[Rfam]
RNA: nadA riboswitch
RNA sequence: GGCUUCAACAACCCCGCAGGUCGGGCGUGCAGUUUACGCAGUGGACCUGCUGGAGCC
Number, nucleotide and partner (000 for none) at each position: 001g057002g056003c055004u054005u053006c052007a051008a000009c000010a000011a000012c000013c043014c041015c000016g050017c049018a048019g047020g046021u045022c044023g042024g000025g039026c038027g037028u036029g035030c000031a000032g000033u000034u000035u029036a028037c027038g026039c025040a000041g014042u023043g013044g022045a021046c020047c019048u018049g017050c016051u007052g006053g005054a004055g003056c002057c001